[Rfam]
RNA sequence: GGCGCUAGCGCGGGCAACGGAAUCCCAAAAGCAGCUGUCCCCGCUGCGCCCAGCUGCCCUGGGGUUUCGUUACCCGCGCUGCCGCCC
Numbered sequence: 001g002g003c004g005c006u007a008g009c010g011c012g013g014g015c016a017a018c019g020g021a022a023u024c025c026c027a028a029a030a031g032c033a034g035c036u037g038u039c040c041c042c043g044c045u046g047c048g049c050c051c052a053g054c055u056g057c058c059c060u061g062g063g064g065u066u067u068c069g070u071u072a073c074c075c076g077c078g079c080u081g082c083c084g085c086c087c
Base pairs, nucleotide, nucleotide: 009078010077011076012075013074017070018069019068020067021066022065023064024063025062028060031057032056033055034054035053036052037051